[Rfam]
RNA sequence: AGGCGGCAUUCUGGAGAGACUCGCGCGGCCCAUACGGACACGCCGCGGGCGCCGAAGGUGAACACCCGCACACGGGCUAACUCUCAGGCAAAAGGACAGAAGGGCGGUG
Numbered sequence: 001a002g003g004c005g006g007c008a009u010u011c012u013g014g015a016g017a018g019a020c021u022c023g024c025g026c027g028g029c030c031c032a033u034a035c036g037g038a039c040a041c042g043c044c045g046c047g048g049g050c051g052c053c054g055a056a057g058g059u060g061a062a063c064a065c066c067c068g069c070a071c072a073c074g075g076g077c078u079a080a081c082u083c084u085c086a087g088g089c090a091a092a093a094g095g096a097c098a099g100a101a102g103g104g105c106g107g108u109g
Base pairs, nucleotide, nucleotide: 007103009101010100011099012098013097020049021048022047023046024045025044051089052088053087054085055084058083060081065076066075
Shown here is a 109-nucleotide RNA from Pollutimonas bauzanensis, a member of the family "Glycine riboswitch aptamer". The family has 44 seed sequences and 9,425 matches in Rfam 15.1. About the family: This family represents the bacterial glycine riboswitch. A search with the family's covariance model found it, with a score of 53 bits.